[Rfam]
RNA sequence: UUAACACAAGAGUAGUAUAUAGAGAUUGCCCCUUUAUUGAUGGGAUGCCGAUUCGAAUCCUGACUAUUGUGUUAAUGCAUCCAGAUAACUGGGUGCUUUUAAAA
Numbered sequence: 001u002u003a004a005c006a007c008a009a010g011a012g013u014a015g016u017a018u019a020u021a022g023a024g025a026u027u028g029c030c031c032c033u034u035u036a037u038u039g040a041u042g043g044g045a046u047g048c049c050g051a052u053u054c055g056a057a058u059c060c061u062g063a064c065u066a067u068u069g070u071g072u073u074a075a076u077g078c079a080u081c082c083a084g085a086u087a088a089c090u091g092g093g094u095g096c097u098u099u100u101a102a103a104a
Base pairs, nucleotide, nucleotide: 003073004072005071006070007069008068009067011065012064030043031042033040034039048062050060077096078095079094080093081092082091083090084089
About this RNA
Rfam assigns this 104-nucleotide RNA from Streptococcus parauberis to the family "Streptococcus sRNA SpF41". The base pairs follow the family's consensus structure, which was predicted with mfold. On this family, see Mann et al., PLoS Pathog 2012: "Control of virulence by small RNAs in Streptococcus pneumoniae". The family's RNA type in Rfam is small RNA. Rfam's curators put it in the seed alignment. NCBI's taxonomy places the organism under Bacteria, Bacillota, Streptococcaceae, Streptococcus, Streptococcus parauberis.